[Rfam]
Nucleotides: 311
Base pairs, nucleotide, nucleotide: 001311003309004308005307006306007305008304011064012063013062014061015033016032017031018030019029020028038060039059040058041057042056069302071300072299073298074297075296078293079292080291081290082288088283090281091280092279093278094277095276096275097274099269100268101267102266103265106262107261108260111257113255118253119252120251121250122249123248124247125243126242127241128240129239130238131237132236133234134233135232136231137230138228139227140178142176143175144174145173146172147171148170149169150168151166152165154163155162156161182224183223184222185221186220187219192217193216194215195214200209201208202207
Number, partner (000 for none) and nucleotide at each position: 001311a002000a003309g004308u005307g006306g007305a008304c009000u010000a011064g012063g013062c014061c015033g016032g017031g018030c019029g020028g021000u022000u023000u024000g025000g026000c027000u028020c029019c030018g031017c032016c033015c034000u035000c036000c037000a038060c039059c040058c041057g042056u043000g044000a045000g046000a047000c048000a049000g050000u051000c052000a053000u054000c055000a056042g057041c058040g059039g060038g061014g062013g063012c064011c065000g066000a067000a068000a069302c070000a071300c072299g073298g074297g075296g076000a077000a078293g079292u080291c081290c082288g083000g084000c085000c086000g087000a088283c089000g090281c091280g092279g093278u094277c095276g096275g097274g098000c099269c100268c101267c102266g103265g104000a105000a106262g107261c108260c109000a110000a111257c112000g113255u114000g115000g116000a117000a118253g119252c120251c121250u122249c123248g124247u125243c126242c127241g128240u129239c130238g131237g132236g133234g134233a135232c136231g137230g138228c139227g140178g141000u142176c143175c144174g145173c146172g147171g148170c149169g150168u151166g152165c153000a154163c155162c156161c157000g158000c159000a160000g161156g162155g163154g164000c165152g166151u167000u168150a169149c170148g171147u172146c173145g174144u175143g176142g177000u178140u179000c180000g181000a182224c183223g184222g185221u186220g187219g188000c189000a190000g191000c192217c193216c194215g195214c196000c197000a198000g199000g200209c201208a202207c203000g204000g205000a206000a207202g208201u209200g210000a211000g212000c213000a214195g215194c216193g217192g218000a219187c220186c221185a222184c223183c224182g225000a226000a227139c228138g229000c230137c231136c232135g233134u234133c235000g236132c237131u238130c239129g240128a241127c242126g243125g244000g245000u246000c247124g248123c249122g250121g251120g252119g253118u254000g255113g256000a257111g258000a259000a260108g261107g262106c263000g264000a265103c266102c267101g268100g269099g270000a271000c272000u273000a274097c275096c276095c277094g278093g279092c280091c281090g282000g283088g284000a285000a286000c287000g288082c289000c290081g291080g292079g293078c294000a295000a296075c297074c298073c299072c300071g301000a302069g303000c304008g305007u306006c307005c308004a309003c310000a311001u
About this RNA:
Rfam assigns this 311-nucleotide sequence from Halobacterium jilantaiense to the family "Archaeal signal recognition particle RNA". On this family, see Wild et al., Curr Opin Struct Biol 2002: "Towards the structure of the mammalian signal recognition particle". The family's RNA type in Rfam is non-coding RNA gene. Its Rfam clan is "SRP clan". A search with the family's covariance model found it, with a score of 183 bits. Taxonomically the source falls in Halobacterium (Archaea, Methanobacteriati, Halobacteriales, Halobacteriaceae).